[Rfam]
RNA sequence: UAAAUCUGAGGUAGUAGAUUGAAUAGUUGUGGAGUAUAAAACCUCCCUUUGAGAUAACUAUACAAUCUACUGUCUUUCUUAU
Numbered sequence: 001u002a003a004a005u006c007u008g009a010g011g012u013a014g015u016a017g018a019u020u021g022a023a024u025a026g027u028u029g030u031g032g033a034g035u036a037u038a039a040a041a042c043c044u045c046c047c048u049u050u051g052a053g054a055u056a057a058c059u060a061u062a063c064a065a066u067c068u069a070c071u072g073u074c075u076u077u078c079u080u081a082u
Stems, first nucleotide, its partner, number of pairs: 003080002008076014023061005032045003046053001
RNA: let-7 microRNA precursor family